The family of this 410-nucleotide RNA from Roseibium aquae is "Bacterial RNase P class A". Its family is annotated with dimeric ribonuclease P complex, tRNA processing and ribonuclease P activity in the Gene Ontology. The source organism's lineage runs through Bacteria, Pseudomonadati, Pseudomonadota, Stappiaceae and Roseibium. The base pairs follow the family's consensus structure, which is taken from published work. Clan: RNaseP clan. A search with the family's covariance model found it, with a score of 299 bits.
RNA sequence: CCAGUCGGCCGGACAGCCGCUGCCGCAAGUGCCGAAAGGCCGCGGGGGAGGAAAGUCCGGGCUCCAAGGAAACACGGUGCCGGGUAACACCCGGCGAGGGCGACCUCAGGGAAAGUGCCACAGAAAGCAAACCGCCCUGUCCAGAUAGCGAUAUUUGUCGCAGGGUAAGGGUGAAAGGGUGGGGUAAGAGCCCACCGCGCCUUCGGCAACGCGGGCGGCAUGGUAAACCCCACCGGGAGCAAGACCGAAUAGGGGCAGCGCGGGCCGCAAGGCCCAGGCCGGUUUCCAGGCCAGUUGCCCGGGUUGGUUGCGCGAGGCGUCUGGCAACAGGCGUCCCAGAUGAAUGGCUGUCACGUCCGGGCCUUCGGGGCCGGGCCAUACAGAACCCGGCUUACAGGCCGGCUGGCUCU
Numbered sequence: 001c002c003a004g005u006c007g008g009c010c011g012g013a014c015a016g017c018c019g020c021u022g023c024c025g026c027a028a029g030u031g032c033c034g035a036a037a038g039g040c041c042g043c044g045g046g047g048g049a050g051g052a053a054a055g056u057c058c059g060g061g062c063u064c065c066a067a068g069g070a071a072a073c074a075c076g077g078u079g080c081c082g083g084g085u086a087a088c089a090c091c092c093g094g095c096g097a098g099g100g101c102g103a104c105c106u107c108a109g110g111g112a113a114a115g116u117g118c119c120a121c122a123g124a125a126a127g128c129a130a131a132c133c134g135c136c137c138u139g140u141c142c143a144g145a146u147a148g149c150g151a152u153a154u155u156u157g158u159c160g161c162a163g164g165g166u167a168a169g170g171g172u173g174a175a176a177g178g179g180u181g182g183g184g185u186a187a188g189a190g191c192c193c194a195c196c197g198c199g200c201c202u203u204c205g206g207c208a209a210c211g212c213g214g215g216c217g218g219c220a221u222g223g224u225a226a227a228c229c230c231c232a233c234c235g236g237g238a239g240c241a242a243g244a245c246c247g248a249a250u251a252g253g254g255g256c257a258g259c260g261c262g263g264g265c266c267g268c269a270a271g272g273c274c275c276a277g278g279c280c281g282g283u284u285u286c287c288a289g290g291c292c293a294g295u296u297g298c299c300c301g302g303g304u305u306g307g308u309u310g311c312g313c314g315a316g317g318c319g320u321c322u323g324g325c326a327a328c329a330g331g332c333g334u335c336c337c338a339g340a341u342g343a344a345u346g347g348c349u350g351u352c353a354c355g356u357c358c359g360g361g362c363c364u365u366c367g368g369g370g371c372c373g374g375g376c377c378a379u380a381c382a383g384a385a386c387c388c389g390g391c392u393u394a395c396a397g398g399c400c401g402g403c404u405g406g407c408u409c410u
Stems, first nucleotide, its partner, number of pairs: 001406010011395001012352007020048002023045004053393003057390005062239004071285002075235005080094005095109001096107004110230002115228002117224003132170002134166007178196006197219001198217005204211002243309004253300006277292004316335008